[Rfam]
Shown here is a 78-nucleotide RNA from Anopheles darlingi, a member of the family "mir-980 microRNA precursor family". A search with the family's covariance model found it, with a score of 54 bits.
RNA sequence: GCUACAAUACGGUCAUUCACUAGGUCAUCUAGCAAACGUUUCAUAAGUUAGCUGCCUAGUGAAGGGCAACAUUGUACU
Numbered sequence: 001g002c003u004a005c006a007a008u009a010c011g012g013u014c015a016u017u018c019a020c021u022a023g024g025u026c027a028u029c030u031a032g033c034a035a036a037c038g039u040u041u042c043a044u045a046a047g048u049u050a051g052c053u054g055c056c057u058a059g060u061g062a063a064g065g066g067c068a069a070c071a072u073u074g075u076a077c078u
Stems, first nucleotide, its partner, number of pairs: 004075005012067003017062004023056002029051005
Dot-bracket structure: ...(((((...(((..((((..((....(((((.............)))))...))..))))..)))...)))))...
The base pairs follow the family's consensus structure, which was predicted with RNAalifold.